The record is a 95-nucleotide sequence from Ophiophagus hannah, which matches "mir-190 microRNA precursor family" in Rfam. Lineage of the source: Eukaryota > Sarcopterygii > Serpentes > Elapidae > Ophiophagus. A search with the family's covariance model found it, with a score of 49 bits.
[Rfam]
RNA sequence: GCUUCUGUGAGCUAUGUGUGAUGGCAGUUGUUUCUUCUUUUUAACUGAAGAAGAAGAAGAAGAAACAACUGCCAUCACACAUAGCUCACAGAAGC
Numbered sequence: 001g002c003u004u005c006u007g008u009g010a011g012c013u014a015u016g017u018g019u020g021a022u023g024g025c026a027g028u029u030g031u032u033u034c035u036u037c038u039u040u041u042u043a044a045c046u047g048a049a050g051a052a053g054a055a056g057a058a059g060a061a062g063a064a065a066c067a068a069c070u071g072c073c074a075u076c077a078c079a080c081a082u083a084g085c086u087c088a089c090a091g092a093a094g095c
Stems, first nucleotide, its partner, number of pairs: 005091005011085032